[Rfam]
RNA: Small nucleolar RNA snR31
RNA sequence: AGACCAAAUUUUAACCAUGCUUUCCACUGGCGUCAAUGUGGCGACAUCUAUGGUCACAUUUUUGAUGCUAUUAUACUUCAGUGGUGUUAAUAACGAAGCAUGGGAGAAAAAUGGUUUAAGAUGUAUCUCCAGCUGUUGAAAAUUGACGGAGAGACUUUUCUCUCUCUGUCGCUAUACAAUCUGAUAUAGUUGGUCAUGAUUCUUGCGACAUUC
Numbered sequence: 001a002g003a004c005c006a007a008a009u010u011u012u013a014a015c016c017a018u019g020c021u022u023u024c025c026a027c028u029g030g031c032g033u034c035a036a037u038g039u040g041g042c043g044a045c046a047u048c049u050a051u052g053g054u055c056a057c058a059u060u061u062u063u064g065a066u067g068c069u070a071u072u073a074u075a076c077u078u079c080a081g082u083g084g085u086g087u088u089a090a091u092a093a094c095g096a097a098g099c100a101u102g103g104g105a106g107a108a109a110a111a112u113g114g115u116u117u118a119a120g121a122u123g124u125a126u127c128u129c130c131a132g133c134u135g136u137u138g139a140a141a142a143u144u145g146a147c148g149g150a151g152a153g154a155c156u157u158u159u160c161u162c163u164c165u166c167u168g169u170c171g172c173u174a175u176a177c178a179a180u181c182u183g184a185u186a187u188a189g190u191u192g193g194u195c196a197u198g199a200u201u202c203u204u205g206c207g208a209c210a211u212u213c
Base pairs, nucleotide, nucleotide: 015103016102017101018100019099020098021097022096023075026072028070029069030068031067032066033065034064035060036059037058038057042053076095078093118204120202121201129193130192131191132190133189134188135187136186145170146169147168148167149166150165151164152163153162